This 98-nucleotide RNA sequence from Dielma fastidiosa belongs to the Rfam family "Purine riboswitch aptamer".
It scores 74 bits against the family's covariance model.

RNA sequence: AAUAGUAAGGUAUUUGUUCAUCAUAUAAGCUUCUGAUAAGGGGAAGCGUUUCUACCUGGCACCGUAAAUGCCGGACUAUGAUGAAAGCAUCUUUUUGC
Numbered sequence: 001a002a003u004a005g006u007a008a009g010g011u012a013u014u015u016g017u018u019c020a021u022c023a024u025a026u027a028a029g030c031u032u033c034u035g036a037u038a039a040g041g042g043g044a045a046g047c048g049u050u051u052c053u054a055c056c057u058g059g060c061a062c063c064g065u066a067a068a069u070g071c072c073g074g075a076c077u078a079u080g081a082u083g084a085a086a087g088c089a090u091c092u093u094u095u096u097g098c
Base pairs, nucleotide, nucleotide: 018084019083020082021081022080023079024078025077029047030046031045032044033043034042056074057073058072059071060070061069